[Rfam]
A member of the RNA family "RNA Staph. aureus E (RoxS)" from Planomicrobium sp. YIM 101495, 109 nucleotides long. Its family is annotated with regulation of translational initiation in the Gene Ontology. The base pairs follow the family's consensus structure, which is taken from published work. NCBI's taxonomy places the organism under Bacteria, Bacillota, Bacilli, Caryophanaceae, Planomicrobium.
RNA sequence: GUGAAAUAAAUCACAUACAAACAUACACCCCUUUGUUUGAGCGUGAACAUUUCUCCCAUCCCCUUUGUGUAAUAGAAAAAAGGCCUCCCAAAUAUGGGGGGCUUUUUUC
Numbered sequence: 001g002u003g004a005a006a007u008a009a010a011u012c013a014c015a016u017a018c019a020a021a022c023a024u025a026c027a028c029c030c031c032u033u034u035g036u037u038u039g040a041g042c043g044u045g046a047a048c049a050u051u052u053c054u055c056c057c058a059u060c061c062c063c064u065u066u067g068u069g070u071a072a073u074a075g076a077a078a079a080a081a082g083g084c085c086u087c088c089c090a091a092a093u094a095u096g097g098g099g100g101g102c103u104u105u106u107u108u109c
Stems, first nucleotide, its partner, number of pairs: 003053005011046004018039006079106011
Dot-bracket structure: ..(((((...((((...((((((..........))))))...))))..))))).........................(((((((((((......)))))))))))...